[Rfam]
RNA sequence: GUGCAAAUGAUGGGAAACUACUUUCGACUGAGCAGAGUGAUGCUUUCAAAGGAACCACUGAUGCAC
Numbered sequence: 001g002u003g004c005a006a007a008u009g010a011u012g013g014g015a016a017a018c019u020a021c022u023u024u025c026g027a028c029u030g031a032g033c034a035g036a037g038u039g040a041u042g043c044u045u046u047c048a049a050a051g052g053a054a055c056c057a058c059u060g061a062u063g064c065a066c
Base pairs, nucleotide, nucleotide: 001066002065003064004063005062

The record is a 66-nucleotide sequence from Sphenodon punctatus, which matches "Small nucleolar RNA SNORD42" in Rfam. From the family's description: snoRNA U42 is found in intron 3 of the ribosomal protein L23a (RPL23a) gene in humans and is also present in mice.